[Rfam]
RNA sequence: UAAUCAGCAAAAAAUCACUUUUUAGAUUCAUUGAAUAAUUGAUGUAUCUGGUCUAUAAUAUAGGCCAAAUACAUCAAUUAUUCAAUGAACCUAAAAAGUGACUUUUUGCUUAUGA
Numbered sequence: 001u002a003a004u005c006a007g008c009a010a011a012a013a014a015u016c017a018c019u020u021u022u023u024a025g026a027u028u029c030a031u032u033g034a035a036u037a038a039u040u041g042a043u044g045u046a047u048c049u050g051g052u053c054u055a056u057a058a059u060a061u062a063g064g065c066c067a068a069a070u071a072c073a074u075c076a077a078u079u080a081u082u083c084a085a086u087g088a089a090c091c092u093a094a095a096a097a098g099u100g101a102c103u104u105u106u107u108g109c110u111u112a113u114g115a
Base pairs, nucleotide, nucleotide: 003113004112006110007109009107010106011105012104013103015101016100017099018098019097020096021095022094023093024092025091027089028088029087030086031085032084033083034082035081036080037079038078039077040076041075042074043073044072049067050066051065052064
Shown here is a 115-nucleotide sequence from Medicago truncatula, a member of the family "MIR2593 microRNA precursor family".
Rfam 15.1 lists 1,262 matches to the family in 6 species.
The match comes from Rfam's covariance-model search (107 bits).
Lineage of the source: Eukaryota > Streptophytina > eudicotyledons > Fabales > Medicago.